Overview:
Rfam assigns this 33-nucleotide sequence to the family "DUF805b RNA". The family's consensus secondary structure is taken from published work. The family's RNA type in Rfam is cis-regulatory element.
RNA sequence: AAGGGGCAAGCCGAAAACCUUAAAGAGUAGGCA
Numbered sequence: 001a002a003g004g005g006g007c008a009a010g011c012c013g014a015a016a017a018c019c020u021u022a023a024a025g026a027g028u029a030g031g032c033a
Base pairs, nucleotide, nucleotide: 002021003020004019005018010032011031012030